The record is a 96-nucleotide sequence from Tripterygium wilfordii, which matches "Small nucleolar RNA snoR31/Z110/Z27" in Rfam. This family contains several related snoRNAs including R31, Z27 and Z110. The literature on the family includes a 2001 paper in J Mol Biol by Barneche et al., "Identification of 66 box C/D snoRNAs in Arabidopsis thaliana: extensive gene duplications generated multiple isoforms predicting new ribosomal RNA 2'-O-methylation sites". NCBI's taxonomy places the organism under Eukaryota, Viridiplantae, Streptophytina, fabids, Tripterygium. The base pairs follow the family's consensus structure, which was predicted with PFOLD.

[Rfam]
RNA sequence: GUCAUCAAGUGAUGAGAAUGGAAAAAUCUUAGGACACCUUCCUACAUGGUUUUUGUUAGGCCAUGGAUGAGAAUAACUUUCCGUUCUGAUGAUGAC
Numbered sequence: 001g002u003c004a005u006c007a008a009g010u011g012a013u014g015a016g017a018a019u020g021g022a023a024a025a026a027u028c029u030u031a032g033g034a035c036a037c038c039u040u041c042c043u044a045c046a047u048g049g050u051u052u053u054u055g056u057u058a059g060g061c062c063a064u065g066g067a068u069g070a071g072a073a074u075a076a077c078u079u080u081c082c083g084u085u086c087u088g089a090u091g092a093u094g095a096c
Base pairs, nucleotide, nucleotide: 001096002095003094004093005092006091007090042048